The family of this 62-nucleotide sequence from Candidatus Vecturithrix granuli is "Fluoride riboswitch aptamer (crcB RNA motif)".
RNA sequence: AUAUUUUCAGGUGAUGGAGUUCACCUCGAACCGCAUGUUCUGCUAAUAACUCCUACCAGUUU
Numbered sequence: 001a002u003a004u005u006u007u008c009a010g011g012u013g014a015u016g017g018a019g020u021u022c023a024c025c026u027c028g029a030a031c032c033g034c035a036u037g038u039u040c041u042g043c044u045a046a047u048a049a050c051u052c053c054u055a056c057c058a059g060u061u062u
Stems, first nucleotide, its partner, number of pairs: 010025004016053006033043003
Overview: Lineage of the source: Bacteria > Candidatus Vecturitrichia > Candidatus Vecturitrichales > Candidatus Vecturitrichaceae > Candidatus Vecturithrix.